[Rfam]
RNA sequence: AGCUGGUCCAUAGGUAGUGAGUUAUCUCAGUUGAUUGUUCACAGUCAGUUACAGAUUGAUUUCCUUGUUUUAUUCUUUCCCCUUCUCACUACUGUACUUGAUCAGUCUUUA
Numbered sequence: 001a002g003c004u005g006g007u008c009c010a011u012a013g014g015u016a017g018u019g020a021g022u023u024a025u026c027u028c029a030g031u032u033g034a035u036u037g038u039u040c041a042c043a044g045u046c047a048g049u050u051a052c053a054g055a056u057u058g059a060u061u062u063c064c065u066u067g068u069u070u071u072a073u074u075c076u077u078u079c080c081c082c083u084u085c086u087c088a089c090u091a092c093u094g095u096a097c098u099u100g101a102u103c104a105g106u107c108u109u110u111a
Base pairs, nucleotide, nucleotide: 002106003105004104005103006102007101008100010099014095015094016090017089018088019087020086021085043074044073045072047070048069
RNA: Y RNA